A member of the RNA family "c-di-GMP-II-GAG riboswitch aptamer", 106 nucleotides long.

[Rfam]
RNA sequence: GAGUGAAGGGGACGCGAAGAUCCUCUGGCGGUGACUUCGGUCGCCUCCCUGGACGUCGAUCCAGGCCGCCUGAGGGGAGCGAGUGGCGAGACCGACCCGGACAUGG
Numbered sequence: 001g002a003g004u005g006a007a008g009g010g011g012a013c014g015c016g017a018a019g020a021u022c023c024u025c026u027g028g029c030g031g032u033g034a035c036u037u038c039g040g041u042c043g044c045c046u047c048c049c050u051g052g053a054c055g056u057c058g059a060u061c062c063a064g065g066c067c068g069c070c071u072g073a074g075g076g077g078a079g080c081g082a083g084u085g086g087c088g089a090g091a092c093c094g095a096c097c098c099g100g101a102c103a104u105g106g
Base pairs, nucleotide, nucleotide: 003104004103005102009098010097011096013081014080015079022075023074024073025072027070028069029068039093040092041089042088043087044086045085
Dot-bracket structure: ..(((...(((.(((......((((.(((.........[[[[[[[......................))).))))...)))...]]]]]..]]..)))...)))..

For this family Rfam cites "Bioinformatic analysis of riboswitch structures uncovers variant classes with altered ligand specificity" (Weinberg et al., Proc Natl Acad Sci U S A, 2017). The family is grouped with related families in Rfam's "c-di-GMP_II riboswitch clan". The sequence is in the family's curated seed alignment. Its family is annotated with regulation of gene expression and cyclic-di-GMP binding in the Gene Ontology.